A member of the RNA family "Plastid-rps12 3UTR RNA" from Sophora tonkinensis, 102 nucleotides long.
About the family: Plastid rpl20 is a non-coding RNA (ncRNA) recognised in plastids. It was found in the three prime untranslated region (3UTR) of rps12 gene, its 3UTR location sugest a role in transcript maduration.
[Rfam]
RNA sequence: GGUUUUGAUUGGUGCCAACCCAAUCAUGCAAUUUAGGAUGAGCAAGGCUUCCCCAUUGGUAGCAAAGCAAAUGGUUACCUCUUAAGCGGGGAAAAUCCUAUU
Numbered sequence: 001g002g003u004u005u006u007g008a009u010u011g012g013u014g015c016c017a018a019c020c021c022a023a024u025c026a027u028g029c030a031a032u033u034u035a036g037g038a039u040g041a042g043c044a045a046g047g048c049u050u051c052c053c054c055a056u057u058g059g060u061a062g063c064a065a066a067g068c069a070a071a072u073g074g075u076u077a078c079c080u081c082u083u084a085a086g087c088g089g090g091g092a093a094a095a096u097c098c099u100a101u102u
Base pairs, nucleotide, nucleotide: 009023010022011021012020051091052090053089054088055082058079059078060077061076062075063074
It is one of the family's seed sequences.
A reference for the family is Richter et al. (2023), "Retrograde signaling in plants: A critical review focusing on the GUN pathway and beyond", Plant Commun.